[Rfam]
This 68-nucleotide sequence from Origma solitaria belongs to the Rfam family "Small nucleolar RNA SNORD26".
For this family Rfam cites "A mammalian gene with introns instead of exons generating stable RNA products" (Tycowski et al., Nature, 1996).
RNA sequence: CUGCGGGGAUGAUCCCCCUGAGCUCUCUCUUGCUGAUGGUCUGUGGAGAAGCUUUUUAAAAAAGCAGU
Numbered sequence: 001c002u003g004c005g006g007g008g009a010u011g012a013u014c015c016c017c018c019u020g021a022g023c024u025c026u027c028u029c030u031u032g033c034u035g036a037u038g039g040u041c042u043g044u045g046g047a048g049a050a051g052c053u054u055u056u057u058a059a060a061a062a063a064g065c066a067g068u
Base pairs, nucleotide, nucleotide: 001067002066003065004064
Notes:
It scores 49 bits against the family's covariance model. The family has 17 seed sequences and 451 matches in Rfam 15.1. Lineage of the source: Eukaryota > Metazoa > Neoaves > Telluraves > Origma.